[Rfam]
RNA sequence: UCACCAACCACACACGCCUUACCGAGACUUAACAGCGUGUCUAAAAAACAGUCUCUCAUACCCGACCUGGAGGGUAGGUUGGGAAUAUUUUACCGA
Numbered sequence: 001u002c003a004c005c006a007a008c009c010a011c012a013c014a015c016g017c018c019u020u021a022c023c024g025a026g027a028c029u030u031a032a033c034a035g036c037g038u039g040u041c042u043a044a045a046a047a048a049c050a051g052u053c054u055c056u057c058a059u060a061c062c063c064g065a066c067c068u069g070g071a072g073g074g075u076a077g078g079u080u081g082g083g084a085a086u087a088u089u090u091u092a093c094c095g096a
Stems, first nucleotide, its partner, number of pairs: 013039005020034001024055005061083007